Shown here is a 76-nucleotide RNA sequence from Albula goreensis, a member of the family "mir-16 microRNA precursor family". The family's consensus secondary structure was predicted with PFOLD.
RNA sequence: GUGGUACGGUAGCAGCACGUAAACACUGGAGUUGGGCUGAGUCGUGUCCAGUGUUGCUGUUCUGCUCCAGUAACGC
Numbered sequence: 001g002u003g004g005u006a007c008g009g010u011a012g013c014a015g016c017a018c019g020u021a022a023a024c025a026c027u028g029g030a031g032u033u034g035g036g037c038u039g040a041g042u043c044g045u046g047u048c049c050a051g052u053g054u055u056g057c058u059g060u061u062c063u064g065c066u067c068c069a070g071u072a073a074c075g076c
Stems, first nucleotide, its partner, number of pairs: 001076003005072003010069001011066005017060002020056001022055008
A reference for the family is Calin et al. (2002), "Frequent deletions and down-regulation of micro- RNA genes miR15 and miR16 at 13q14 in chronic lymphocytic leukemia", Proc Natl Acad Sci U S A. Its family is annotated with RISC complex and miRNA-mediated post-transcriptional gene silencing in the Gene Ontology. It scores 54 bits against the family's covariance model.